[Rfam]
Rfam assigns this 78-nucleotide RNA sequence from Alligator sinensis to the family "Mammalian CPEB3 ribozyme". The family's consensus secondary structure is taken from published work. A search with the family's covariance model found it, with a score of 48 bits. Taxonomically the source falls in Alligator (Eukaryota, Bilateria, Sarcopterygii, Archelosauria).

RNA sequence: AGAUCACAAGUUGGAGGCCACUGCAGAACUGCUCGUGGCAUGGCCCUGUCAGAUUCCAACAAAUCUGUGAAUUCUGCU
Numbered sequence: 001a002g003a004u005c006a007c008a009a010g011u012u013g014g015a016g017g018c019c020a021c022u023g024c025a026g027a028a029c030u031g032c033u034c035g036u037g038g039c040a041u042g043g044c045c046c047u048g049u050c051a052g053a054u055u056c057c058a059a060c061a062a063a064u065c066u067g068u069g070a071a072u073u074c075u076g077c078u
Stems, first nucleotide, its partner, number of pairs: 014046001016045004023077006030040002050067006